[Rfam]
RNA sequence: GCCAAGCACAGCGGCUUGUGCCUAUAAUCCAAAUGUUGGGGAGGCUGAGGCUGGGGGACAGCUUGAGCCUGGGGUUCUGAGCUGCAGUGAGCUGUGCCGAGUGGGUGUUUGUGCUAAGGCUGGCAUUGGUAUGGUGGUCCUCAGGGAGCCGGGGACCACCAGGUCGCCUAAGGAGGGGUGAACUGGCCCAGGUCAGAGAUGGAGCAGGUCAAAGCUCCUAUGCUGGUCAGUAGCAGGAUGGUGUCUGUGAACAGUCCCUGUAGCAUGGCACAGGCAAGAGAGCCACGAUUCAGUUUCUU
Numbered sequence: 001g002c003c004a005a006g007c008a009c010a011g012c013g014g015c016u017u018g019u020g021c022c023u024a025u026a027a028u029c030c031a032a033a034u035g036u037u038g039g040g041g042a043g044g045c046u047g048a049g050g051c052u053g054g055g056g057g058a059c060a061g062c063u064u065g066a067g068c069c070u071g072g073g074g075u076u077c078u079g080a081g082c083u084g085c086a087g088u089g090a091g092c093u094g095u096g097c098c099g100a101g102u103g104g105g106u107g108u109u110u111g112u113g114c115u116a117a118g119g120c121u122g123g124c125a126u127u128g129g130u131a132u133g134g135u136g137g138u139c140c141u142c143a144g145g146g147a148g149c150c151g152g153g154g155a156c157c158a159c160c161a162g163g164u165c166g167c168c169u170a171a172g173g174a175g176g177g178g179u180g181a182a183c184u185g186g187c188c189c190a191g192g193u194c195a196g197a198g199a200u201g202g203a204g205c206a207g208g209u210c211a212a213a214g215c216u217c218c219u220a221u222g223c224u225g226g227u228c229a230g231u232a233g234c235a236g237g238a239u240g241g242u243g244u245c246u247g248u249g250a251a252c253a254g255u256c257c258c259u260g261u262a263g264c265a266u267g268g269c270a271c272a273g274g275c276a277a278g279a280g281a282g283c284c285a286c287g288a289u290u291c292a293g294u295u296u297c298u299u
Stems, first nucleotide, its partner, number of pairs: 001045003004023001006021006028042003047297009061283004067275005073269001077268003081264007089256001091255005097249001101248008109237002112235005118228009127166004132161011144149001167173002174219006184211005193202003
Dot-bracket structure: ((((.((((((....)))))).)....(((.........)))))).(((((((((.....((((..(((((.(...(((.(((((((.(.(((((.(...((((((((((.(((((.(((((((((((((.(((((((((((.(....).))))))))))).))))((...))((((((....(((((....(((....)))....)))))..)))))))))))))))..)))))))...))))))))).)))))).))))))).)))).)))))....)))).....)))))))))..
The family of this 299-nucleotide RNA from Heliornis fulica is "Metazoan signal recognition particle RNA". Clan: SRP clan. It is annotated as a non-coding RNA gene. A search with the family's covariance model found it, with a score of 195 bits. From the family's description: The signal recognition particle (SRP) is a universally conserved ribonucleoprotein. It is involved in the co-translational targeting of proteins to membranes. The eukaryotic SRP consists of a 300-nucleotide 7S RNA and six proteins: SRPs 72, 68, 54, 19, 14, and 9. Archaeal SRP consists of a 7S RNA and homologues of the eukaryotic SRP19 and SRP54 proteins. The source organism's lineage runs through Eukaryota, Opisthokonta, Metazoa, Gnathostomata and Heliornis.